[Rfam]
RNA sequence: CCCGUGAACCCGACGAGGGGUACGGGACGAAAUGUGACGCGGGAGACGUGACGUCUCCGGGAGGCGGCCCCACCGCCGACGUUGAAUCGCAAG
Numbered sequence: 001c002c003c004g005u006g007a008a009c010c011c012g013a014c015g016a017g018g019g020g021u022a023c024g025g026g027a028c029g030a031a032a033u034g035u036g037a038c039g040c041g042g043g044a045g046a047c048g049u050g051a052c053g054u055c056u057c058c059g060g061g062a063g064g065c066g067g068c069c070c071c072a073c074c075g076c077c078g079a080c081g082u083u084g085a086a087u088c089g090c091a092a093g
Base pairs, nucleotide, nucleotide: 001026002025003024004023005022028089029088030087036083037082038081039080
The family of this 93-nucleotide sequence is "eL15-Euryarchaeota ribosomal protein leader". For this family Rfam cites "Discovery of 20 novel ribosomal leader candidates in bacteria and archaea" (Eckert and Weinberg, BMC Microbiol, 2020). The sequence is in the family's curated seed alignment.